RNA sequence: GCCGAGAGGGCGAGGAAUACAAUACCCGAAAGGGAAAUAACUCCAGCCGACUUUGGACGGUUUACGAACCUCUUGGCGCCCUAUG
Numbered sequence: 001g002c003c004g005a006g007a008g009g010g011c012g013a014g015g016a017a018u019a020c021a022a023u024a025c026c027c028g029a030a031a032g033g034g035a036a037a038u039a040a041c042u043c044c045a046g047c048c049g050a051c052u053u054u055g056g057a058c059g060g061u062u063u064a065c066g067a068a069c070c071u072c073u074u075g076g077c078g079c080c081c082u083a084u085g
Base pairs, nucleotide, nucleotide: 001077002076003075004074005073006072007071008070009069012044014042016038025034026033027032045062046061047060048059049058
The family of this 85-nucleotide RNA from Rodentibacter trehalosifermentans is "sRNA-Xcc1". It scores 76 bits against the family's covariance model. The literature on the family includes a 2011 paper in RNA Biol by Chen et al., "sRNA-Xcc1, an integron-encoded transposon- and plasmid-transferred trans-acting sRNA, is under the positive control of the key virulence regulators HrpG and HrpX of Xanthomonas campestris pathovar campestris". Pairs were carried over by alignment from the consensus structure, which was predicted with RNAalifold.